Annotation
c-di-GMP-I riboswitch aptamer: a 90-nucleotide RNA from Butyrivibrio sp. INlla14. Taxonomically the source falls in Butyrivibrio (Bacteria, Bacillota, Lachnospirales, Lachnospiraceae).
[Rfam]
RNA sequence: UUAAUAUAAAGGCAAAGCCAUCGGAAGAUGGUGACGCAAAGCUAAAGGGUCUUAAGCACUUAUUUGAGUGCCAGAUAGCCAGUUGCUGGU
Numbered sequence: 001u002u003a004a005u006a007u008a009a010a011g012g013c014a015a016a017g018c019c020a021u022c023g024g025a026a027g028a029u030g031g032u033g034a035c036g037c038a039a040a041g042c043u044a045a046a047g048g049g050u051c052u053u054a055a056g057c058a059c060u061u062a063u064u065u066g067a068g069u070g071c072c073a074g075a076u077a078g079c080c081a082g083u084u085g086c087u088g089g090u
Stems, first nucleotide, its partner, number of pairs: 012037002017032006040084004047080002049076003056071006